RNA sequence: CUCUUAUCCAGAGUGGUGGAGGGAAAGGCCCUACGAAACCACGGCAACCUACAAACAUUUAUGUUUGGAAAGGUGCCAAAUCCUGCGAAGCGUUAUGCUUUGAAAGAUGAGAG
Numbered sequence: 001c002u003c004u005u006a007u008c009c010a011g012a013g014u015g016g017u018g019g020a021g022g023g024a025a026a027g028g029c030c031c032u033a034c035g036a037a038a039c040c041a042c043g044g045c046a047a048c049c050u051a052c053a054a055a056c057a058u059u060u061a062u063g064u065u066u067g068g069a070a071a072g073g074u075g076c077c078a079a080a081u082c083c084u085g086c087g088a089a090g091c092g093u094u095a096u097g098c099u100u101u102g103a104a105a106g107a108u109g110a111g112a113g
Stems, first nucleotide, its partner, number of pairs: 001113008013042005021031003026084003043077004048073002050069001052067004081105001086102006
A member of the RNA family "SAM riboswitch aptamer (S box leader)" from Ornithinibacillus halophilus, 113 nucleotides long.